Source information
Rfam assigns this 134-nucleotide RNA from Ictidomys tridecemlineatus to the family "Small nucleolar RNA SNORA71". Rfam 15.1 lists 1,805 matches to the family in 606 species. The base pairs follow the family's consensus structure, which was predicted with PFOLD. Rfam classes the family as an H/ACA-box small nucleolar RNA. It scores 132 bits against the family's covariance model. Rfam's curators write: The members of this family belong to the H/ACA class of snoRNAs which bind a number of proteins (including dyskerin, Gar1p and Nop10p) to form snoRNP complexes.
[Rfam]
RNA sequence: UCCUGCAUUCGAAAGUGAUCAUGGGCUGCUUGUGCCCUGGUCAUUGAUAGUGCAGGGACAGGAAUGGCUGGAAGACAUUUUCCCCGUGUUUGGAGGGUCCACCCAUCCCUUCCAAACCCUGUAGUUUUCCCACA
Dot-bracket structure: (((((((((....((((((((.((((.......))))))))))))...))))))))).........(..(((((((...........((((((((((.........))))).)))))......))))))))...
Numbered sequence: 001u002c003c004u005g006c007a008u009u010c011g012a013a014a015g016u017g018a019u020c021a022u023g024g025g026c027u028g029c030u031u032g033u034g035c036c037c038u039g040g041u042c043a044u045u046g047a048u049a050g051u052g053c054a055g056g057g058a059c060a061g062g063a064a065u066g067g068c069u070g071g072a073a074g075a076c077a078u079u080u081u082c083c084c085c086g087u088g089u090u091u092g093g094a095g096g097g098u099c100c101a102c103c104c105a106u107c108c109c110u111u112c113c114a115a116a117c118c119c120u121g122u123a124g125u126u127u128u129c130c131c132a133c134a
Stems, first nucleotide, its partner, number of pairs: 001057009014045008023037004067131001070130007088117005093111005